[Rfam]
RNA sequence: CGAGGGGAUACAGCAGCAAUUCAUGUUUUGGAGUGUUCUACAAGAUUCAAAACGUGAGGUGCUGCUAUACCCCCCCGUGGGGAA
Numbered sequence: 001c002g003a004g005g006g007g008a009u010a011c012a013g014c015a016g017c018a019a020u021u022c023a024u025g026u027u028u029u030g031g032a033g034u035g036u037u038c039u040a041c042a043a044g045a046u047u048c049a050a051a052a053c054g055u056g057a058g059g060u061g062c063u064g065c066u067a068u069a070c071c072c073c074c075c076c077g078u079g080g081g082g083a084a
Stems, first nucleotide, its partner, number of pairs: 001077002004074004009069002013065005020058013034044001
Rfam assigns this 84-nucleotide RNA sequence from Chrysochloris asiatica to the family "mir-322 microRNA precursor family". NCBI's taxonomy places the organism under Eukaryota, Craniata, Teleostomi, Eutheria, Chrysochloris. A search with the family's covariance model found it, with a score of 97 bits. Pairs were carried over by alignment from the consensus structure, which was predicted with RNAalifold. Gene Ontology terms of the family: miRNA-mediated post-transcriptional gene silencing and RISC complex.